[Rfam]
RNA sequence: CAUCUUCCAGUACAGUGUUGGAUGGUCUGAUCGUGAAGCUCCUAACACUGUCUGGUAAAGAUGGC
Numbered sequence: 001c002a003u004c005u006u007c008c009a010g011u012a013c014a015g016u017g018u019u020g021g022a023u024g025g026u027c028u029g030a031u032c033g034u035g036a037a038g039c040u041c042c043u044a045a046c047a048c049u050g051u052c053u054g055g056u057a058a059a060g061a062u063g064g065c
Stems, first nucleotide, its partner, number of pairs: 001063004005058002007055002010053001012051010